[Rfam]
Nucleotides: 131
Stems, first nucleotide, its partner, number of pairs: 003056006018043004023038004067124010083108001086106001088104005
Number, partner (000 for none) and nucleotide at each position: 001000a002000a003056a004055g005054c006053a007052g008051g009000c010000u011000g012000c013000a014000a015000u016000u017000a018043c019042a020041g021040u022000g023038c024037u025036u026035c027000a028000u029000u030000c031000u032000g033000u034000g035026g036025g037024a038023g039000g040021a041020c042019u043018g044000c045000c046000a047000u048000u049000a050000a051008c052007c053006u054005g055004c056003u057000g058000a059000g060000a061000g062000u063000a064000a065000a066000u067124g068123c069122u070121g071120c072119u073118g074117u075116g076115a077000a078000u079000u080000u081000a082000c083108u084000g085000g086106c087000u088104u089103c090102a091101c092100c093000u094000g095000c096000u097000u098000g099000u100092g101091g102090u103089g104088a105000u106086g107000g108083g109000c110000a111000u112000u113000c114000u115076u116075u117074g118073u119072g120071g121070c122069a123068g124067c125000u126000a127000c128000a129000a130000a131000a